[Rfam]
RNA: serC leader
RNA sequence: CGGCGGGACACUCCGCCCCAACGCGGAGCAUAUAUCUGGAAGGAUACCAUGA
Numbered sequence: 001c002g003g004c005g006g007g008a009c010a011c012u013c014c015g016c017c018c019c020a021a022c023g024c025g026g027a028g029c030a031u032a033u034a035u036c037u038g039g040a041a042g043g044a045u046a047c048c049a050u051g052a
Base pairs, nucleotide, nucleotide: 011028012027013026014025015024016023033046034045035044036043037042